[Rfam]
RNA sequence: GGCAAGAACCUUUUGAAUCAAGUAGUGGAGUGAUUCAAAAGGUUCU
Numbered sequence: 001g002g003c004a005a006g007a008a009c010c011u012u013u014u015g016a017a018u019c020a021a022g023u024a025g026u027g028g029a030g031u032g033a034u035u036c037a038a039a040a041g042g043u044u045c046u
Stems, first nucleotide, its partner, number of pairs: 005046016